This 74-nucleotide RNA from Terasakiella brassicae belongs to the Rfam family "tRNA". By type it is a transfer RNA. Lineage of the source: Bacteria > Pseudomonadota > Rhodospirillales > Terasakiellaceae > Terasakiella.

Nucleotides: 074
Base pairs, nucleotide, nucleotide: 001073002072003071004070005069006068007067010026011025012024013023028044029043030042031041032040050066051065052064053063054062
Number, partner (000 for none) and nucleotide at each position: 001073g002072g003071g004070g005069c006068a007067g008000u009000a010026g011025c012024u013023c014000a015000g016000u017000u018000g019000g020000u021000u022000a023013g024012a025011g026010c027000c028044g029043a030042c031041c032040g033000c034000u035000c036000a037000u038000a039000a040032c041031g042030g043029u044028c045000u046000g047000g048000u049000c050066g051065g052064g053063g054062g055000u056000u057000c058000a059000a060000g061000u062054c063053c064052c065051u066050c067007c068006u069005g070004c071003c072002c073001u074000a